Rfam assigns this 74-nucleotide sequence from Ailuropoda melanoleuca to the family "Small nucleolar RNA SNORD66". The family's consensus secondary structure was predicted with RNAalifold. By type it is a C/D-box small nucleolar RNA.

RNA sequence: UUCUUGUGAUGAUUGAUUUUAUGUGUCAACGUGUCUGGACCACUGGGCCGAGAUUAAUAGUGAAAUCAGUGGAG
Numbered sequence: 001u002u003c004u005u006g007u008g009a010u011g012a013u014u015g016a017u018u019u020u021a022u023g024u025g026u027c028a029a030c031g032u033g034u035c036u037g038g039a040c041c042a043c044u045g046g047g048c049c050g051a052g053a054u055u056a057a058u059a060g061u062g063a064a065a066u067c068a069g070u071g072g073a074g
Base pairs, nucleotide, nucleotide: 001074002073003072004071
snoRNA HBII-142 is part of the C/D family of snoRNAs.
The family has 20 seed sequences and 1,346 matches in Rfam 15.1.
The source organism's lineage runs through Eukaryota, Deuterostomia, Dipnotetrapodomorpha, Carnivora and Ailuropoda.